[Rfam]
RNA sequence: AGCCUUGUGCAGUGGCAAUACCGCAAGCAAUGAAGCUUCAACUGAGCUGCGAUUAUUGCUAGUUGAAAACUUUAGCCAAUAACUCGCCCUCUGUUCCGUUCCGCAAGGUUCUGAUACAGUGAGGCAAUUUUUUUAAGGUCCCAAAAGGGC
Numbered sequence: 001a002g003c004c005u006u007g008u009g010c011a012g013u014g015g016c017a018a019u020a021c022c023g024c025a026a027g028c029a030a031u032g033a034a035g036c037u038u039c040a041a042c043u044g045a046g047c048u049g050c051g052a053u054u055a056u057u058g059c060u061a062g063u064u065g066a067a068a069a070c071u072u073u074a075g076c077c078a079a080u081a082a083c084u085c086g087c088c089c090u091c092u093g094u095u096c097c098g099u100u101c102c103g104c105a106a107g108g109u110u111c112u113g114a115u116a117c118a119g120u121g122a123g124g125c126a127a128u129u130u131u132u133u134u135a136a137g138g139u140c141c142c143a144a145a146a147g148g149g150c
Base pairs, nucleotide, nucleotide: 020053022051023050024049026048027047028046034043035042086125087124088123089121091119092118093117094116097113098112138150139149140148141147